[Rfam]
RNA sequence: UGCCGAGGAUUUCCUCGGCAGUUAACUACAGUCGGAAUUCAAAUUCCUCGGUAGUUAACUGCCGAGGGGGUA
Numbered sequence: 001u002g003c004c005g006a007g008g009a010u011u012u013c014c015u016c017g018g019c020a021g022u023u024a025a026c027u028a029c030a031g032u033c034g035g036a037a038u039u040c041a042a043a044u045u046c047c048u049c050g051g052u053a054g055u056u057a058a059c060u061g062c063c064g065a066g067g068g069g070g071u072a
Stems, first nucleotide, its partner, number of pairs: 012068002015065015

Shown here is a 72-nucleotide sequence from Medicago truncatula, a member of the family "MIR2629 microRNA precursor family". The organism belongs to Medicago, within Eukaryota. Pairs were carried over by alignment from the consensus structure, which was predicted with RNAalifold.